[Rfam]
RNA: Bacterial large subunit ribosomal RNA, nucleotides 575 to 638
Organism: Rhodothermus marinus
RNA sequence: AGUCGGAGCCUCUUGCCGGACCAAAGUCCGGCAAUGGGGUGACGGCGUGCCUUUUGCAGAAUGA
Numbered sequence: 001a002g003u004c005g006g007a008g009c010c011u012c013u014u015g016c017c018g019g020a021c022c023a024a025a026g027u028c029c030g031g032c033a034a035u036g037g038g039g040u041g042a043c044g045g046c047g048u049g050c051c052u053u054u055u056g057c058a059g060a061a062u063g064a
Base pairs, nucleotide, nucleotide: 002046003045004044005043008040009039010038011037012036050063052061
Dot-bracket structure: .((((..(((((.......................)))))..))))...(.(........).).